[Rfam]
RNA sequence: UCGCAGGGUCGCGACUGGCGUUGAGGUGGGUCACCACCGGGGAGCGACCACAUGGCAAUCGACCGUUCGCCUGGGUCGGCCGU
Number, nucleotide and partner (000 for none) at each position: 001u000002c000003g053004c000005a000006g000007g049008g048009u047010c046011g045012c044013g000014a000015c041016u040017g071018g070019c069020g068021u000022u000023g000024a000025g000026g037027u036028g035029g034030g000031u000032c000033a000034c029035c028036a027037c026038c000039g000040g016041g015042g000043a000044g012045c011046g010047a009048c008049c007050a000051c000052a000053u003054g000055g000056c000057a000058a000059u000060c078061g077062a076063c075064c074065g000066u000067u000068c020069g019070c018071c017072u000073g000074g064075g063076u062077c061078g060079g000080c000081c000082g000083u000
This 83-nucleotide sequence from Microbacterium aurum belongs to the Rfam family "ZMP/ZTP riboswitch aptamer (pfl RNA motif)". The base pairs follow the family's consensus structure, which is taken from published work. Lineage of the source: Bacteria > Bacillati > Actinomycetota > Actinomycetes > Microbacterium.